[Rfam]
RNA sequence: GGUGUGCGAUCGACUUACCUCCACGUGGUGCACACUGGGCAACGUGUACUCAAACGGCAAAAAAGUCUAA
Numbered sequence: 001g002g003u004g005u006g007c008g009a010u011c012g013a014c015u016u017a018c019c020u021c022c023a024c025g026u027g028g029u030g031c032a033c034a035c036u037g038g039g040c041a042a043c044g045u046g047u048a049c050u051c052a053a054a055c056g057g058c059a060a061a062a063a064a065g066u067c068u069a070a
Base pairs, nucleotide, nucleotide: 001036002035003034004033005032006031007030017029018028019027043056044055045054047052
Annotation
The family of this 70-nucleotide RNA from Rodentolepis nana is "HDV ribozyme from F. prausnitzii". The source organism's lineage runs through Eukaryota, Spiralia, Lophotrochozoa, Neodermata and Rodentolepis. Its family is annotated with catalytic activity in the Gene Ontology. Rfam 15.1 lists 3,803 matches to the family in 91 species. For this family Rfam cites "Widespread occurrence of self-cleaving ribozymes" (Webb et al., Science, 2009).